Notes:
Rfam assigns this 350-nucleotide sequence from Winkia neuii to the family "Bacterial RNase P class A". It scores 308 bits against the family's covariance model.
[Rfam]
RNA sequence: CGAGCCGGCCGGACGGUCGCGGCGUGAGUCGAGGAAAGUCCGGGCUCCACAGGACAGGGUGGUGGCUAACGGCCACCCGGGGUAACCCGCGGGCUAGUGCCACAGAAAAAAUACCGCCUAUAGACAACGUCUAGUAGGUAAGGGUGAAAAGGCGAGGUAAGAGCUCACCGCGCGGCAGGUGACUGAAGCGGCAUGGUAAACCCCACCCGGAGCAAGACCAAGUAGCAAGGAAGGUGGUCCGCUUACCCUUGCAGGUAGGUUGCUAGAUCCUGUCGGCAACGACAGGGGUAGAUGGAUGGCCGUCGCCUCUCAAUGAGGUACAGAACCCGGCUUAUAGGCCGGCUCAAAAU
Numbered sequence: 001c002g003a004g005c006c007g008g009c010c011g012g013a014c015g016g017u018c019g020c021g022g023c024g025u026g027a028g029u030c031g032a033g034g035a036a037a038g039u040c041c042g043g044g045c046u047c048c049a050c051a052g053g054a055c056a057g058g059g060u061g062g063u064g065g066c067u068a069a070c071g072g073c074c075a076c077c078c079g080g081g082g083u084a085a086c087c088c089g090c091g092g093g094c095u096a097g098u099g100c101c102a103c104a105g106a107a108a109a110a111a112u113a114c115c116g117c118c119u120a121u122a123g124a125c126a127a128c129g130u131c132u133a134g135u136a137g138g139u140a141a142g143g144g145u146g147a148a149a150a151g152g153c154g155a156g157g158u159a160a161g162a163g164c165u166c167a168c169c170g171c172g173c174g175g176c177a178g179g180u181g182a183c184u185g186a187a188g189c190g191g192c193a194u195g196g197u198a199a200a201c202c203c204c205a206c207c208c209g210g211a212g213c214a215a216g217a218c219c220a221a222g223u224a225g226c227a228a229g230g231a232a233g234g235u236g237g238u239c240c241g242c243u244u245a246c247c248c249u250u251g252c253a254g255g256u257a258g259g260u261u262g263c264u265a266g267a268u269c270c271u272g273u274c275g276g277c278a279a280c281g282a283c284a285g286g287g288g289u290a291g292a293u294g295g296a297u298g299g300c301c302g303u304c305g306c307c308u309c310u311c312a313a314u315g316a317g318g319u320a321c322a323g324a325a326c327c328c329g330g331c332u333u334a335u336a337g338g339c340c341g342g343c344u345c346a347a348a349a350u
Stems, first nucleotide, its partner, number of pairs: 002345009011335001012304007020031004036333003040330005045212004052240004057208005062076005077091001078089004092203002097201002099197003114143002116139005121133004151169002154166003170192001171190003176185003216261004225252006232244004268287008
Taxonomically the source falls in Winkia neuii (Bacteria, Actinomycetes, Actinomycetales, Actinomycetaceae).